The family of this 288-nucleotide RNA sequence from Clostridium sp. CAG:265 is "HNH endonuclease-associated RNA and ORF (HEARO) RNA".
The family has 139 seed sequences and 952 matches in Rfam 15.1.
The family's RNA type in Rfam is non-coding RNA gene.
RNA sequence: GUCAACAGCCCACUACCCUAAAGGGAUAGGGGCUUGGGAUGAAAAUCCCUAGUCUCUUCUCUGAAAGUAGUAUUGCAUAGUCUUCGGGCGAAUGUGAUGGUUGAAUAGCUUAAGUAUAUCGGAAUGUGCUUUGCACAGCGAAUAUACUACGUUACUGGAGAAUAUAUAGACACCUUAGAAUGUUUCCCAAGUUCUAAGCUCUGUGGUAAGCGAUUAAACAUCUCUGAUGGCAGGAGAAGUGUUGCUUGUAUACAAAACCUUCGGAUAACAUUGGCGAAGGGAGCUUAC
Number, nucleotide and partner (000 for none) at each position: 001g000002u104003c103004a102005a101006c100007a000008g098009c000010c032011c031012a000013c029014u028015a000016c000017c024018c023019u000020a000021a000022a000023g018024g017025g000026a000027u000028a014029g013030g000031g011032g010033c052034u051035u000036g049037g048038g047039a046040u045041g000042a000043a000044a000045a040046u039047c038048c037049c036050u000051a034052g033053u000054c000055u000056c000057u000058u000059c000060u000061c000062u000063g000064a000065a000066a000067g000068u000069a000070g000071u000072a000073u000074u000075g000076c000077a000078u000079a000080g000081u000082c000083u000084u000085c000086g000087g000088g000089c000090g000091a000092a000093u000094g000095u000096g000097a000098u008099g000100g006101u005102u004103g003104a002105a000106u000107a000108g275109c274110u273111u000112a271113a148114g147115u146116a145117u144118a143119u142120c000121g000122g000123a000124a000125u000126g000127u000128g000129c000130u000131u000132u000133g000134c000135a000136c000137a000138g000139c000140g000141a000142a119143u118144a117145u116146a115147c114148u113149a000150c000151g269152u268153u267154a266155c000156u264157g000158g262159a261160g260161a000162a000163u000164a000165u000166a000167u000168a000169g000170a204171c203172a000173c000174c198175u197176u196177a195178g194179a193180a192181u191182g000183u000184u283185u282186c281187c280188c279189a000190a000191g181192u180193u179194c178195u177196a176197a175198g174199c000200u000201c000202u000203g171204u170205g000206g249207u248208a247209a246210g245211c244212g243213a242214u241215u000216a000217a000218a240219c239220a000221u237222c236223u235224c234225u232226g231227a000228u000229g000230g000231c226232a225233g000234g224235a223236g222237a221238a000239g219240u218241g214242u213243u212244g211245c210246u209247u208248g207249u206250a000251u000252a000253c000254a000255a000256a000257a000258c000259c000260u160261u159262c158263g000264g156265a000266u154267a153268a152269c151270a000271u112272u000273g110274g109275c108276g000277a000278a000279g188280g187281g186282a185283g184284c000285u000286u000287a000288c000